[Rfam]
RNA sequence: AGAGACAAGUGGAGAAGUAGUCUCUUCACUUCGUAUGACAAGUGAGAUUCAACUCCUCCAACUUAUUUUC
Numbered sequence: 001a002g003a004g005a006c007a008a009g010u011g012g013a014g015a016a017g018u019a020g021u022c023u024c025u026u027c028a029c030u031u032c033g034u035a036u037g038a039c040a041a042g043u044g045a046g047a048u049u050c051a052a053c054u055c056c057u058c059c060a061a062c063u064u065a066u067u068u069u070c
Stems, first nucleotide, its partner, number of pairs: 007064003010060005017054001018052001023047002026045006
RNA: mir-1175 microRNA precursor family
Organism: Dinothrombium tinctorium